[Rfam]
Shown here is a 96-nucleotide sequence from Streptococcus zalophi, a member of the family "Purine riboswitch aptamer". Taxonomically the source falls in Streptococcus (Bacteria, Bacillota, Lactobacillales, Streptococcaceae). The match comes from Rfam's covariance-model search (54 bits).
RNA sequence: AAGAAUAUAAAACUGUUAACUUAUUUAUGCUGUGAAUUGGCGCAGCGUCUCUACAAGACACCGUAAUGUCUAACAAUAAGUGGGCUUUGAGCUUGC
Numbered sequence: 001a002a003g004a005a006u007a008u009a010a011a012a013c014u015g016u017u018a019a020c021u022u023a024u025u026u027a028u029g030c031u032g033u034g035a036a037u038u039g040g041c042g043c044a045g046c047g048u049c050u051c052u053a054c055a056a057g058a059c060a061c062c063g064u065a066a067u068g069u070c071u072a073a074c075a076a077u078a079a080g081u082g083g084g085c086u087u088u089g090a091g092c093u094u095g096c
Stems, first nucleotide, its partner, number of pairs: 019081007029046006056071005